[Rfam]
RNA sequence: GACAUGACGAUCUGAAUCUCUGAGAUUGUAAACGUUCUUGUAUGGAAAUCUACAUUUGAGAUGUUGUCUGUUAGAGGAGGUCUCAUCUUUGCGUUAGAAAGAGAGAAGCA
Numbered sequence: 001g002a003c004a005u006g007a008c009g010a011u012c013u014g015a016a017u018c019u020c021u022g023a024g025a026u027u028g029u030a031a032a033c034g035u036u037c038u039u040g041u042a043u044g045g046a047a048a049u050c051u052a053c054a055u056u057u058g059a060g061a062u063g064u065u066g067u068c069u070g071u072u073a074g075a076g077g078a079g080g081u082c083u084c085a086u087c088u089u090u091g092c093g094u095u096a097g098a099a100a101g102a103g104a105g106a107a108g109c110a
Stems, first nucleotide, its partner, number of pairs: 001036003005032001007029007049106003055100003060095005070087001074084004
Shown here is a 110-nucleotide RNA from Arabidopsis lyrata, a member of the family "Small nucleolar RNA ncR1". The sequence is in the family's curated seed alignment. The family has 5 seed sequences and 7 matches in Rfam 15.1. The family's consensus secondary structure was predicted with RNAfold. The family's RNA type in Rfam is H/ACA-box small nucleolar RNA.